[Rfam]
RNA sequence: UAUGCGGACCGGGCCCCUCUGGCGCUCGCUUCUUCGGAAGGAACGUGAUGUCGGCCGCAUCG
Numbered sequence: 001u002a003u004g005c006g007g008a009c010c011g012g013g014c015c016c017c018u019c020u021g022g023c024g025c026u027c028g029c030u031u032c033u034u035c036g037g038a039a040g041g042a043a044c045g046u047g048a049u050g051u052c053g054g055c056c057g058c059a060u061c062g
Base pairs, nucleotide, nucleotide: 006056007055009054010053011052012051022046023045024044026042027041
Shown here is a 62-nucleotide RNA sequence from Sphingorhabdus pulchriflava, a member of the family "terC RNA". The family's consensus secondary structure is taken from published work. Taxonomically the source falls in Sphingorhabdus (Bacteria, Alphaproteobacteria, Sphingomonadales, Sphingorhabdaceae).